About this RNA:
The record is an 86-nucleotide RNA from Actinomyces sp. oral taxon 849, which matches "ZMP/ZTP riboswitch aptamer (pfl RNA motif)" in Rfam.

[Rfam]
RNA sequence: UAUGUCCGUCGCGACUGGCGCCGGGUGGAUCACCACCGGGGAGCGGCACGAACACGACUCCGGGGUCGCCCGCCUGGGCCGCGGAU
Numbered sequence: 001u002a003u004g005u006c007c008g009u010c011g012c013g014a015c016u017g018g019c020g021c022c023g024g025g026u027g028g029a030u031c032a033c034c035a036c037c038g039g040g041g042a043g044c045g046g047c048a049c050g051a052a053c054a055c056g057a058c059u060c061c062g063g064g065g066u067c068g069c070c071c072g073c074c075u076g077g078g079c080c081g082c083g084g085a086u
Stems, first nucleotide, its partner, number of pairs: 003052001005050001008047005015040002017074004025036004064080004
The match comes from Rfam's covariance-model search (52 bits).